[Rfam]
RNA sequence: CUUAAAAUUUGGCUUCUCUUCCUAGUUCUUCCCAGAGUUGGGAAAAGCUGGGUUGAGAGGGUGAAAAAAAAGAAGA
Number, nucleotide and partner (000 for none) at each position: 001c000002u000003u000004a000005a000006a000007a000008u000009u000010u000011g000012g000013c000014u059015u058016c057017u056018c055019u000020u000021c052022c051023u050024a049025g048026u000027u000028c000029u044030u043031c042032c041033c040034a039035g000036a000037g000038u000039u034040g033041g032042g031043a030044a029045a000046a000047g000048c025049u024050g023051g022052g021053u000054u000055g018056a017057g016058a015059g014060g000061g000062u000063g000064a000065a000066a000067a000068a000069a000070a000071a000072g000073a000074a000075g000076a000
RNA: mir-320 microRNA precursor family
Organism: Propithecus coquereli